Background:
transfer-messenger RNA: a 376-nucleotide RNA sequence from Zeimonas arvi. It is annotated as a non-coding RNA gene.
[Rfam]
RNA sequence: GGGGCCGACCUGGUUUCGACGUGGGUAGCGAAGCGGCACAGGGCAUGCCGAGGCGCCAAGUCCUCGUAAAUCCUUUGGCAAAUCUACAAACGCCAACGACGAGCGUUUCGCUCUCGCGGCUUAAACCCCGCGAGCGCCGCAACAGUCAGCCGACGGGCUGGGCCUGACCGGGCAACCGGAAGGGCUGCGGUGUAACUUCAGUCGGAUAGCGCCCGGGCCGGGUCACUUGGUCCAGGCGCGAAACUCAAGGUGACUGGGUGUGCGGCGGCCUGUCGUUCGGCUAAUCGCCCACCGAGAUCCAAAUAGAGCGACUACGCAUGUAGAACUGGUCGUAGAGGACUUGCGGACGCGGGUUCGAUUCCCGCCGGCUCCACCA
Numbered sequence: 001g002g003g004g005c006c007g008a009c010c011u012g013g014u015u016u017c018g019a020c021g022u023g024g025g026u027a028g029c030g031a032a033g034c035g036g037c038a039c040a041g042g043g044c045a046u047g048c049c050g051a052g053g054c055g056c057c058a059a060g061u062c063c064u065c066g067u068a069a070a071u072c073c074u075u076u077g078g079c080a081a082a083u084c085u086a087c088a089a090a091c092g093c094c095a096a097c098g099a100c101g102a103g104c105g106u107u108u109c110g111c112u113c114u115c116g117c118g119g120c121u122u123a124a125a126c127c128c129c130g131c132g133a134g135c136g137c138c139g140c141a142a143c144a145g146u147c148a149g150c151c152g153a154c155g156g157g158c159u160g161g162g163c164c165u166g167a168c169c170g171g172g173c174a175a176c177c178g179g180a181a182g183g184g185c186u187g188c189g190g191u192g193u194a195a196c197u198u199c200a201g202u203c204g205g206a207u208a209g210c211g212c213c214c215g216g217g218c219c220g221g222g223u224c225a226c227u228u229g230g231u232c233c234a235g236g237c238g239c240g241a242a243a244c245u246c247a248a249g250g251u252g253a254c255u256g257g258g259u260g261u262g263c264g265g266c267g268g269c270c271u272g273u274c275g276u277u278c279g280g281c282u283a284a285u286c287g288c289c290c291a292c293c294g295a296g297a298u299c300c301a302a303a304u305a306g307a308g309c310g311a312c313u314a315c316g317c318a319u320g321u322a323g324a325a326c327u328g329g330u331c332g333u334a335g336a337g338g339a340c341u342u343g344c345g346g347a348c349g350c351g352g353g354u355u356c357g358a359u360u361c362c363c364g365c366c367g368g369c370u371c372c373a374c375c376a
Stems, first nucleotide, its partner, number of pairs: 001372007020345007033333005039328003044320005049066005055079006113134007135192006150205005209239005215233003221255006257293004262288004268281003272312004276306002349365005

A search with the family's covariance model found it, with a score of 205 bits.
The base pairs follow the family's consensus structure, which is taken from published work.